The family of this 46-nucleotide RNA sequence from a Planctomycetota bacterium is "Acido-Lenti-1 RNA". The family's consensus secondary structure is taken from published work.
RNA sequence: CCCAGGGCUUGCGCCCUGGGCUAUAUUAUGGCGCCCGUUCAGGGCU
Numbered sequence: 001c002c003c004a005g006g007g008c009u010u011g012c013g014c015c016c017u018g019g020g021c022u023a024u025a026u027u028a029u030g031g032c033g034c035c036c037g038u039u040c041a042g043g044g045c046u
Stems, first nucleotide, its partner, number of pairs: 001020008033045004

The organism belongs to Planctomycetota, within Bacteria.